[Rfam]
RNA sequence: AGCUGCCAUAAUGGCCAUAGGAGAAAUGCUCAUGUCAUGGCCCUGUCAGAUUCCAAUGAAGCUAAGAAUUCUGCU
Numbered sequence: 001a002g003c004u005g006c007c008a009u010a011a012u013g014g015c016c017a018u019a020g021g022a023g024a025a026a027u028g029c030u031c032a033u034g035u036c037a038u039g040g041c042c043c044u045g046u047c048a049g050a051u052u053c054c055a056a057u058g059a060a061g062c063u064a065a066g067a068a069u070u071c072u073g074c075u
Stems, first nucleotide, its partner, number of pairs: 013042004019075002022072004026038003048063002051060003
Rfam assigns this 75-nucleotide sequence from Alligator mississippiensis to the family "Mammalian CPEB3 ribozyme". Lineage of the source: Eukaryota > Eumetazoa > Deuterostomia > Crocodylia > Alligator. Rfam's curators write: The mammalian CPEB3 ribozyme is a self cleaving RNA located in the second intron of the CPEB3 gene which belongs to a family of genes regulating messenger RNA polyadenylation.